[Rfam]
The record is a 122-nucleotide RNA from Rhizobium sp. AC44/96, which matches "Alphaproteobacterial sRNA ar35" in Rfam.
The match comes from Rfam's covariance-model search (50 bits).
The literature on the family includes a 2012 paper in RNA Biol by del Val et al., "A survey of sRNA families in alpha-proteobacteria".
Taxonomically the source falls in Rhizobium (Bacteria, Pseudomonadati, Hyphomicrobiales, Rhizobiaceae).
RNA sequence: AAGAUGUCGGCCUGCAACCUGCAGGCCGCAUAAUUGAACGUGCGGUCCCAUUGACCACGGAUGUACUGGCAAUGGGACAGCGCGUUUGAAGGGCCGGGCAAUGUUGUCCGGCCUUUUCGCUU
Numbered sequence: 001a002a003g004a005u006g007u008c009g010g011c012c013u014g015c016a017a018c019c020u021g022c023a024g025g026c027c028g029c030a031u032a033a034u035u036g037a038a039c040g041u042g043c044g045g046u047c048c049c050a051u052u053g054a055c056c057a058c059g060g061a062u063g064u065a066c067u068g069g070c071a072a073u074g075g076g077a078c079a080g081c082g083c084g085u086u087u088g089a090a091g092g093g094c095c096g097g098g099c100a101a102u103g104u105u106g107u108c109c110g111g112c113c114u115u116u117u118c119g120c121u122u
Stems, first nucleotide, its partner, number of pairs: 001031001009027005037086007046077004052071002055069003088117013